Annotation
Plastid-clpP 5UTR RNA: a 75-nucleotide sequence from Arachis hypogaea. The base pairs follow the family's consensus structure, which was predicted with LocARNA. The source organism's lineage runs through Eukaryota, Embryophyta, Magnoliopsida, Mesangiospermae and Arachis. The literature on the family includes a 2023 paper in Plant Commun by Richter et al., "Retrograde signaling in plants: A critical review focusing on the GUN pathway and beyond". The match comes from Rfam's covariance-model search (59 bits).
[Rfam]
RNA sequence: AAUUCUAUUCAGUAGGAACAAAAAGAAGUGGAUCUAUUUUAUUCUAUAUCCGAUAAAUAACAAUACGCAAUGGUA
Numbered sequence: 001a002a003u004u005c006u007a008u009u010c011a012g013u014a015g016g017a018a019c020a021a022a023a024a025g026a027a028g029u030g031g032a033u034c035u036a037u038u039u040u041a042u043u044c045u046a047u048a049u050c051c052g053a054u055a056a057a058u059a060a061c062a063a064u065a066c067g068c069a070a071u072g073g074u075a
Stems, first nucleotide, its partner, number of pairs: 003023002006020001008018003050073002058065002